[Rfam]
RNA sequence: AUAGGGUUCGGGGAUGGAGUUCCCCAUCAACCGCCGCAAAGGCUGAUAACUCCUACCAGAAC
Number, nucleotide and partner (000 for none) at each position: 001a000002u000003a000004g000005g000006g000007u000008u000009c000010g025011g024012g023013g022014a000015u000016g053017g052018a051019g050020u049021u048022c013023c012024c011025c010026a000027u000028c000029a000030a000031c000032c000033g043034c042035c041036g000037c000038a000039a000040a000041g035042g034043c033044u000045g000046a000047u000048a021049a020050c019051u018052c017053c016054u000055a000056c000057c000058a000059g000060a000061a000062c000

The family of this 62-nucleotide sequence from Sphingomonas sp. EC-HK361 is "Fluoride riboswitch aptamer (crcB RNA motif)". The base pairs follow the family's consensus structure, which is taken from published work. The organism belongs to Sphingomonas, within Bacteria. Gene Ontology terms of the family: response to fluoride and positive regulation of gene expression.